[Rfam]
The record is a 61-nucleotide sequence from Synaphobranchus kaupii, which matches "Selenocysteine insertion sequence 1" in Rfam. Rfam classes the family as a cis-regulatory element. The family has 61 seed sequences and 3,793 matches in Rfam 15.1. About the family: The incorporation of selenocysteine into a protein sequence is directed by an in-frame UGA codon (usually a stop codon) within the coding region of the mRNA. Selenoprotein mRNAs contain a conserved secondary structure in the 3' UTR that is required for the distinction of UGA stop from UGA selenocysteine. The selenocysteine insertion sequence (SECIS) is around 60 nt in length and adopts a hairpin structure which is sufficiently well-defined and conserved to act as a computational screen for selenoprotein genes. A reference for the family is Walczak et al. (1996), "A novel RNA structural motif in the selenocysteine insertion element of eukaryotic selenoprotein mRNAs", RNA.

RNA sequence: GUGUAUUAAUGAUGGCCUGUGUCUAAACUCUGCUGAGGAGGCAGGCUUGAUGCUCAUACCC
Numbered sequence: 001g002u003g004u005a006u007u008a009a010u011g012a013u014g015g016c017c018u019g020u021g022u023c024u025a026a027a028c029u030c031u032g033c034u035g036a037g038g039a040g041g042c043a044g045g046c047u048u049g050a051u052g053c054u055c056a057u058a059c060c061c
Base pairs, nucleotide, nucleotide: 001061003059004058005057014047015046016045017044018043019042020041022039023038028037029036030035